[Rfam]
RNA sequence: GGAGUCGGCCAGGCAAUCGCUGCGCGCAAGCGUGGAGGAAAGUCCGGGCUCCGCAGGGCAGGGUGCCAGGUAACGCCUGGGCGUCGCGAGGCGACGGAACAGUGCAACAGAAACACACCGCCGAUGGCCGUCCGCAAGGGCGGAUCAGGUAAGGGUGAAAUCGUGCGGUAAGAGCGCACGGCCGGGCUGGCAACAGUCCCGGCGGGCAAACCCCACCCGGAGCAAAGCCAAAUAGGCAGGCAUUGAGGCGGCCCGCCGAGCCUGCGGGUAGGCUGCACGAGGCGGCGAGCGAUCGCCGUCCCAGAUGAAUGAUUGCCUCGGGUCGCAAGACCUCAGACAGAACCCGGCUUAUCGGCCGACUCCCACC
Numbered sequence: 001g002g003a004g005u006c007g008g009c010c011a012g013g014c015a016a017u018c019g020c021u022g023c024g025c026g027c028a029a030g031c032g033u034g035g036a037g038g039a040a041a042g043u044c045c046g047g048g049c050u051c052c053g054c055a056g057g058g059c060a061g062g063g064u065g066c067c068a069g070g071u072a073a074c075g076c077c078u079g080g081g082c083g084u085c086g087c088g089a090g091g092c093g094a095c096g097g098a099a100c101a102g103u104g105c106a107a108c109a110g111a112a113a114c115a116c117a118c119c120g121c122c123g124a125u126g127g128c129c130g131u132c133c134g135c136a137a138g139g140g141c142g143g144a145u146c147a148g149g150u151a152a153g154g155g156u157g158a159a160a161u162c163g164u165g166c167g168g169u170a171a172g173a174g175c176g177c178a179c180g181g182c183c184g185g186g187c188u189g190g191c192a193a194c195a196g197u198c199c200c201g202g203c204g205g206g207c208a209a210a211c212c213c214c215a216c217c218c219g220g221a222g223c224a225a226a227g228c229c230a231a232a233u234a235g236g237c238a239g240g241c242a243u244u245g246a247g248g249c250g251g252c253c254c255g256c257c258g259a260g261c262c263u264g265c266g267g268g269u270a271g272g273c274u275g276c277a278c279g280a281g282g283c284g285g286c287g288a289g290c291g292a293u294c295g296c297c298g299u300c301c302c303a304g305a306u307g308a309a310u311g312a313u314u315g316c317c318u319c320g321g322g323u324c325g326c327a328a329g330a331c332c333u334c335a336g337a338c339a340g341a342a343c344c345c346g347g348c349u350u351a352u353c354g355g356c357c358g359a360c361u362c363c364c365a366c367c
Base pairs, nucleotide, nucleotide: 001363002362003361004360005359006358007357008356009355010354011352012317013316014315015314016313017312018311020035021034022033023032024031025030040350041349042348044347045346046345047344048343049222050221051220052219056254057253058252059251061218062217063216064215065214066080067079068078069077070076081095082093083092084091085090096213097212102211103210104207105206118154119153120150121149122148128142162180163179164178165177166176167175181203182201184199185198186197187196188195189194226274227273228272229271236265237264238263239262240261241260247257248256249255281300282299283298284297285296286295287294288293

The record is a 367-nucleotide sequence from Sulfuritortus calidifontis, which matches "Bacterial RNase P class A" in Rfam. The base pairs follow the family's consensus structure, which is taken from published work.